[Rfam]
RNA: Iron response element I
Organism: Myotis myotis
RNA sequence: UGGCUCCUGCUUCAACAGUGCUUGGAUGGAACCA
Numbered sequence: 001u002g003g004c005u006c007c008u009g010c011u012u013c014a015a016c017a018g019u020g021c022u023u024g025g026a027u028g029g030a031a032c033c034a
Stems, first nucleotide, its partner, number of pairs: 001034003005030003009027001011026005016020001